[Rfam]
RNA sequence: UGAAAGCUAUGAUGUAUCAUGAAAAUUAUAUUCGCAUGUCAGACUUCAGAGAUGCAUUGGCAUUAAUGAGAAGAUGUUUCAUGUUCUGAGCGUCA
Numbered sequence: 001u002g003a004a005a006g007c008u009a010u011g012a013u014g015u016a017u018c019a020u021g022a023a024a025a026u027u028a029u030a031u032u033c034g035c036a037u038g039u040c041a042g043a044c045u046u047c048a049g050a051g052a053u054g055c056a057u058u059g060g061c062a063u064u065a066a067u068g069a070g071a072a073g074a075u076g077u078u079u080c081a082u083g084u085u086c087u088g089a090g091c092g093u094c095a
Stems, first nucleotide, its partner, number of pairs: 001095002004093001006091002051064004
The record is a 95-nucleotide sequence from Sorghum bicolor, which matches "Small nucleolar RNA R64/Z200 family" in Rfam. Lineage of the source: Eukaryota > Streptophyta > Poaceae > Sorghinae > Sorghum. Rfam links the family to the GO terms RNA processing and nucleolus.